A member of the RNA family "MIR530 microRNA precursor family" from Morus notabilis, 185 nucleotides long. Rfam links the family to the GO terms RISC complex and miRNA-mediated post-transcriptional gene silencing. The base pairs follow the family's consensus structure, which was predicted with WAR. The literature on the family includes a 2008 paper in Plant J by Lu et al., "Stress-responsive microRNAs in Populus".

RNA sequence: ACCAAUAUGUUGCCUUUAUCUGCGUUUGCACCUGCACCUUAAUUGGCUUCUUAAUUUUCUUCAUCUCAUUUGCCGAUCACUAACUCUACUUGAGAUCAGCCAAAACCUCAAACUAAUCAACGGCGAUAAGACGAAGGACCAUAGCAAGAGGUGCAGAUGCAGAUGCAGGUGAAUGCCAUUUUGGU
Number, nucleotide and partner (000 for none) at each position: 001a185002c184003c183004a182005a181006u000007a179008u178009g177010u000011u000012g176013c175014c000015u173016u172017u171018a170019u169020c168021u167022g166023c165024g164025u163026u162027u161028g160029c159030a158031c000032c156033u155034g154035c153036a152037c151038c150039u149040u000041a000042a000043u000044u000045g000046g000047c000048u000049u000050c000051u000052u000053a000054a000055u000056u000057u000058u000059c000060u000061u000062c000063a000064u000065c000066u000067c000068a000069u000070u000071u000072g000073c000074c000075g000076a000077u000078c000079a000080c000081u000082a000083a000084c000085u000086c000087u000088a000089c000090u000091u000092g000093a000094g000095a000096u000097c000098a000099g000100c000101c000102a000103a000104a000105a000106c000107c000108u000109c000110a000111a000112a000113c000114u000115a000116a000117u000118c000119a000120a000121c000122g000123g000124c000125g000126a000127u000128a000129a000130g000131a000132c000133g000134a000135a000136g000137g000138a000139c000140c000141a000142u000143a000144g000145c000146a000147a000148g000149a039150g038151g037152u036153g035154c034155a033156g032157a000158u030159g029160c028161a027162g026163a025164u024165g023166c022167a021168g020169g019170u018171g017172a016173a015174u000175g013176c012177c009178a008179u007180u000181u005182u004183g003184g002185u001